Rfam assigns this 60-nucleotide RNA from Tursiops truncatus to the family "Ma3 gene ribosomal frameshift signal". The organism belongs to Tursiops, within Eukaryota.

RNA sequence: GGGAAACGAGAUGCGGGCUGGGGCCUGGAGCCACCCCAGGCCCCAGGAAGCAUAGGCUCA
Numbered sequence: 001g002g003g004a005a006a007c008g009a010g011a012u013g014c015g016g017g018c019u020g021g022g023g024c025c026u027g028g029a030g031c032c033a034c035c036c037c038a039g040g041c042c043c044c045a046g047g048a049a050g051c052a053u054a055g056g057c058u059c060a
Stems, first nucleotide, its partner, number of pairs: 015043005021037003028059005

Gene Ontology term of the family: translational frameshifting.
It scores 67 bits against the family's covariance model.
The literature on the family includes a 2006 paper in J Biol Chem by Wills et al., "A functional -1 ribosomal frameshift signal in the human paraneoplastic Ma3 gene".
The base pairs follow the family's consensus structure, which is taken from published work.